[Rfam]
RNA sequence: UACCGAAGUUUUCCUCGAUAGUUAACUACAACCGCUUCCAUAAUUCGACAGUUAACUGCCGAUGAGCAU
Numbered sequence: 001u002a003c004c005g006a007a008g009u010u011u012u013c014c015u016c017g018a019u020a021g022u023u024a025a026c027u028a029c030a031a032c033c034g035c036u037u038c039c040a041u042a043a044u045u046c047g048a049c050a051g052u053u054a055a056c057u058g059c060c061g062a063u064g065a066g067c068a069u
Base pairs, nucleotide, nucleotide: 012065013064015062016061017060019058020057021056022055023054024053025052026051027050